[Rfam]
RNA sequence: GAGCGAAGGUCCCAGCGGAGAGGCGGGAGCUCUGUGAAGUGAGGCCUCUCUAACGAUUGAACGAACAUUCCCUUCGCAAAAUUGAUCGCCGAAUCGUAGGAUGCCUGAAACUCUCGCCAUUUUCGGAGCAUCUUGAACCCUCGGCCACAUUCAC
Numbered sequence: 001g002a003g004c005g006a007a008g009g010u011c012c013c014a015g016c017g018g019a020g021a022g023g024c025g026g027g028a029g030c031u032c033u034g035u036g037a038a039g040u041g042a043g044g045c046c047u048c049u050c051u052a053a054c055g056a057u058u059g060a061a062c063g064a065a066c067a068u069u070c071c072c073u074u075c076g077c078a079a080a081a082u083u084g085a086u087c088g089c090c091g092a093a094u095c096g097u098a099g100g101a102u103g104c105c106u107g108a109a110a111c112u113c114u115c116g117c118c119a120u121u122u123u124c125g126g127a128g129c130a131u132c133u134u135g136a137a138c139c140c141u142c143g144g145c146c147a148c149a150u151u152c153a154c
Stems, first nucleotide, its partner, number of pairs: 003077007011020001013018001025050003030043003034040002088145005100132002103129002105126006
Background:
Small nucleolar RNA snoR145: a 154-nucleotide sequence from Rhodamnia argentea. Taxonomically the source falls in Rhodamnia (Eukaryota, Streptophytina, Magnoliopsida, Gunneridae). The family has 19 seed sequences and 286 matches in Rfam 15.1. On this family, see Chen and Wu, Nucleic Acids Res 2009: "Mining small RNA sequencing data: a new approach to identify small nucleolar RNAs in Arabidopsis". The base pairs follow the family's consensus structure, which was predicted with mfold. Its family is annotated with nucleolus and RNA processing in the Gene Ontology.